[Rfam]
RNA sequence: GAAUAAAAGUCUCACAUCUUGAUGAAGAGGAAUGGAAAGCCGAGACCCAAAUCAAAACAGAGGCGUCCCCCAAUUAAAAUUGGUAAGUGAUAUCUAUGUCUUGGUUUCGAUCUUGAUCUCGGUCUUUCACUCCUCUUCUUCAUGAUGUAAGAAUUUGUUAUUC
Numbered sequence: 001g002a003a004u005a006a007a008a009g010u011c012u013c014a015c016a017u018c019u020u021g022a023u024g025a026a027g028a029g030g031a032a033u034g035g036a037a038a039g040c041c042g043a044g045a046c047c048c049a050a051a052u053c054a055a056a057a058c059a060g061a062g063g064c065g066u067c068c069c070c071c072a073a074u075u076a077a078a079a080u081u082g083g084u085a086a087g088u089g090a091u092a093u094c095u096a097u098g099u100c101u102u103g104g105u106u107u108c109g110a111u112c113u114u115g116a117u118c119u120c121g122g123u124c125u126u127u128c129a130c131u132c133c134u135c136u137u138c139u140u141c142a143u144g145a146u147g148u149a150a151g152a153a154u155u156u157g158u159u160a161u162u163c
Stems, first nucleotide, its partner, number of pairs: 001163006007155002010152003014148005021141002024138008033129005039123005055107002057099003061095003065091003069087001070083005